Rfam assigns this 124-nucleotide RNA sequence from Peribacillus faecalis to the family "PyrR binding site".
RNA sequence: UGAACCUUUAAAAACAGUCCCGUGAGGCUGACAAGGAAACGGAUAAAAGCGAUUCAUGUAUAUUUGCAGGAUUCGUGUAUAUUUUCUUGUAUCCUCUCGCACCGGGCGAGAGGAUUUUUUUGUU
Numbered sequence: 001u002g003a004a005c006c007u008u009u010a011a012a013a014a015c016a017g018u019c020c021c022g023u024g025a026g027g028c029u030g031a032c033a034a035g036g037a038a039a040c041g042g043a044u045a046a047a048a049g050c051g052a053u054u055c056a057u058g059u060a061u062a063u064u065u066g067c068a069g070g071a072u073u074c075g076u077g078u079a080u081a082u083u084u085u086c087u088u089g090u091a092u093c094c095u096c097u098c099g100c101a102c103c104g105g106g107c108g109a110g111a112g113g114a115u116u117u118u119u120u121u122g123u124u
Base pairs, nucleotide, nucleotide: 005036006035007034008033015030016029017028018027019026047078049076050075051074052073054071055070057068058067059066060065089117091115092114093113094112095111096110097109098108099107100106
Its family is annotated with pyrimidine nucleobase transport and pyrimidine nucleobase biosynthetic process in the Gene Ontology. The base pairs follow the family's consensus structure, which is taken from published work.